RNA: Small nucleolar RNA U54
RNA sequence: GGCUCGAUGAUUUCUUCGCCUGUAAAGGCAAUAUACGCUAUUCUGAAUCAUUUGUGUUGUCAUUCAUAAUUUUUCUAUGAGAGUU
Numbered sequence: 001g002g003c004u005c006g007a008u009g010a011u012u013u014c015u016u017c018g019c020c021u022g023u024a025a026a027g028g029c030a031a032u033a034u035a036c037g038c039u040a041u042u043c044u045g046a047a048u049c050a051u052u053u054g055u056g057u058u059g060u061c062a063u064u065c066a067u068a069a070u071u072u073u074u075c076u077a078u079g080a081g082a083g084u085u
Stems, first nucleotide, its partner, number of pairs: 001085005